[Rfam]
Annotation
The family of this 220-nucleotide RNA from Chlorobium phaeobacteroides is "Group II catalytic intron D1-D4-6". The sequence is in the family's curated seed alignment.
RNA sequence: AGAGUCUUACAUGAAAGGCAUAGCCAACCAUCAUGGCCCCGAGUCAUGCCUCGACCUACAGCAAUGGGGUGGGGAAGCGUUGACAGGGGAACACACAGGCCCAAUAAUGAGCUCCGAAAUCACCUCAAUUCGUAGGCUGACCCUGUUGAGCGAAGGGGAAUGCAACAUCGGUCGUAUCAUCAAGGCAAGAUACGACAGGCUACGGCGGAGUCGUAGAACU
Numbered sequence: 001a002g003a004g005u006c007u008u009a010c011a012u013g014a015a016a017g018g019c020a021u022a023g024c025c026a027a028c029c030a031u032c033a034u035g036g037c038c039c040c041g042a043g044u045c046a047u048g049c050c051u052c053g054a055c056c057u058a059c060a061g062c063a064a065u066g067g068g069g070u071g072g073g074g075a076a077g078c079g080u081u082g083a084c085a086g087g088g089g090a091a092c093a094c095a096c097a098g099g100c101c102c103a104a105u106a107a108u109g110a111g112c113u114c115c116g117a118a119a120u121c122a123c124c125u126c127a128a129u130u131c132g133u134a135g136g137c138u139g140a141c142c143c144u145g146u147u148g149a150g151c152g153a154a155g156g157g158g159a160a161u162g163c164a165a166c167a168u169c170g171g172u173c174g175u176a177u178c179a180u181c182a183a184g185g186c187a188a189g190a191u192a193c194g195a196c197a198g199g200c201u202a203c204g205g206c207g208g209a210g211u212c213g214u215a216g217a218a219c220u
Base pairs, nucleotide, nucleotide: 010035011034012033013032014031017029018028021188023186024185037089038088039087040086043084044083045082046081047079048078049074050073051072052071053070055068056067057066058065109212111211112210113209114208115207116206130205131204132203133202134201135200136163137162141157142156143155144154168199169198171196172195173194174193175192176191177190178189